[Rfam]
RNA sequence: UGAUGUCUCUCACCCAGCCCCGAAGACCCCCUGUGGGUGAGGGAGUAGUUAGCAGGAUC
Numbered sequence: 001u002g003a004u005g006u007c008u009c010u011c012a013c014c015c016a017g018c019c020c021c022g023a024a025g026a027c028c029c030c031c032u033g034u035g036g037g038u039g040a041g042g043g044a045g046u047a048g049u050u051a052g053c054a055g056g057a058u059c
Base pairs, nucleotide, nucleotide: 006044007043008042009041010040011039013037014036015035016034025059026058028056029055
Record summary:
Shown here is a 59-nucleotide RNA from Fukomys damarensis, a member of the family "Antizyme RNA frameshifting stimulation element". Pairs were carried over by alignment from the consensus structure, which is taken from published work. Rfam classes the family as a frameshift element.